[Rfam]
RNA: rpsB sRNA
RNA sequence: CUCACGCGGAGAUGCGGGAGCGGACGGGAGAAAUCCGUUCGCUUCCACCGGUGGUGCCCGAAAGGGCACUGAUGAUUUCCGCGGCGGCUCAACCGGAAAGGAGACAA
Numbered sequence: 001c002u003c004a005c006g007c008g009g010a011g012a013u014g015c016g017g018g019a020g021c022g023g024a025c026g027g028g029a030g031a032a033a034u035c036c037g038u039u040c041g042c043u044u045c046c047a048c049c050g051g052u053g054g055u056g057c058c059c060g061a062a063a064g065g066g067c068a069c070u071g072a073u074g075a076u077u078u079c080c081g082c083g084g085c086g087g088c089u090c091a092a093c094c095g096g097a098a099a100g101g102a103g104a105c106a107a
Stems, first nucleotide, its partner, number of pairs: 001086001003084001005083006012076001017046002025037002028035001053070006
Dot-bracket structure: (.(.((((((.(....((......((.(......))).......))......((((((......)))))).....).))))))).).....................